This 90-nucleotide RNA sequence from Paracoccus tegillarcae belongs to the Rfam family "Glycine riboswitch aptamer". Its family is annotated with glycine biosynthetic process in the Gene Ontology. Taxonomically the source falls in Paracoccus (Bacteria, Pseudomonadati, Alphaproteobacteria, Rhodobacterales).
[Rfam]
RNA sequence: CCUAGGAAUUCGGGAGAAGCUGGCCAGGCGCCAGUGCCGAAGGAGCAGCCGCCCCGGCGAACUCUCAGGCAAAAGGACCGUUUCCUGCAG
Numbered sequence: 001c002c003u004a005g006g007a008a009u010u011c012g013g014g015a016g017a018a019g020c021u022g023g024c025c026a027g028g029c030g031c032c033a034g035u036g037c038c039g040a041a042g043g044a045g046c047a048g049c050c051g052c053c054c055c056g057g058c059g060a061a062c063u064c065u066c067a068g069g070c071a072a073a074a075g076g077a078c079c080g081u082u083u084c085c086u087g088c089a090g
Stems, first nucleotide, its partner, number of pairs: 006085001008083001011080003020034004036070003039066002043064003048058002